[Rfam]
RNA sequence: GAGAGAGGUCGGACGGCUGCCGGACCCCAGGGUCUGAGGAAAGUCUCCCCUCCGCUCCGGACACACGAACACCUGUAAAGGGUGUCGGGCGAGAGCCCGGGCGCUGGCACAGAAACGGAACCGUCCCCUGUUAAUGCAAUGAUGCGAAAAGCUGAGGUCGCAGGGGCUGCGGAUGAAACGGUGAAUCCUCGUGGGUGCAAGUUGGAAAUCGGGAUUAUAUGAGCAGUCCGGAAUCACCCGAUUUGUUUUGAAACGCUUAGCCGAAUGCCGUCACUGCAAGAGUCCUAAAGGACCGUUCCCCUCACUGCCUGGUGUCGGGAAUCAUUGCAGGAACAGAAGGGAGCUUACGGACCUCACUC
Numbered sequence: 001g002a003g004a005g006a007g008g009u010c011g012g013a014c015g016g017c018u019g020c021c022g023g024a025c026c027c028c029a030g031g032g033u034c035u036g037a038g039g040a041a042a043g044u045c046u047c048c049c050c051u052c053c054g055c056u057c058c059g060g061a062c063a064c065a066c067g068a069a070c071a072c073c074u075g076u077a078a079a080g081g082g083u084g085u086c087g088g089g090c091g092a093g094a095g096c097c098c099g100g101g102c103g104c105u106g107g108c109a110c111a112g113a114a115a116c117g118g119a120a121c122c123g124u125c126c127c128c129u130g131u132u133a134a135u136g137c138a139a140u141g142a143u144g145c146g147a148a149a150a151g152c153u154g155a156g157g158u159c160g161c162a163g164g165g166g167c168u169g170c171g172g173a174u175g176a177a178a179c180g181g182u183g184a185a186u187c188c189u190c191g192u193g194g195g196u197g198c199a200a201g202u203u204g205g206a207a208a209u210c211g212g213g214a215u216u217a218u219a220u221g222a223g224c225a226g227u228c229c230g231g232a233a234u235c236a237c238c239c240g241a242u243u244u245g246u247u248u249u250g251a252a253a254c255g256c257u258u259a260g261c262c263g264a265a266u267g268c269c270g271u272c273a274c275u276g277c278a279a280g281a282g283u284c285c286u287a288a289a290g291g292a293c294c295g296u297u298c299c300c301c302u303c304a305c306u307g308c309c310u311g312g313u314g315u316c317g318g319g320a321a322u323c324a325u326u327g328c329a330g331g332a333a334c335a336g337a338a339g340g341g342a343g344c345u346u347a348c349g350g351a352c353c354u355c356a357c358u359c
Base pairs, nucleotide, nucleotide: 001359002358003357005355006354007353008352009351010349011348012272013271014270015269016268017267021036022035023034024033025032041346042345043344045343046342047341048340049339050197052195053194058226060224064193065192066191067190068189069085070084071083072082073081086099087098088097089096090095100188101187105184107182108181121172122171123170125166126165127164128163129162130161131160144152145151201254202253203252208242209241210240211239
Notes:
Rfam assigns this 359-nucleotide RNA from Methanosarcina sp. MTP4 to the family "Archaeal RNase P". Gene Ontology terms of the family: multimeric ribonuclease P complex, ribonuclease P activity and tRNA processing. The family's consensus secondary structure is taken from published work. About the family: Ribonuclease P (RNase P) is a ubiquitous endoribonuclease, found in archaea, bacteria and eukarya as well as chloroplasts and mitochondria. Its best characterised activity is the generation of mature 5'-ends of tRNAs by cleaving the 5'-leader elements of precursor-tRNAs. A reference for the family is Frank and Pace (1998), "Ribonuclease P: unity and diversity in a tRNA processing ribozyme", Annu Rev Biochem. Its Rfam clan is "RNaseP clan". Taxonomically the source falls in Methanosarcina (Archaea, Methanobacteriati, Methanomicrobia, Methanosarcinales).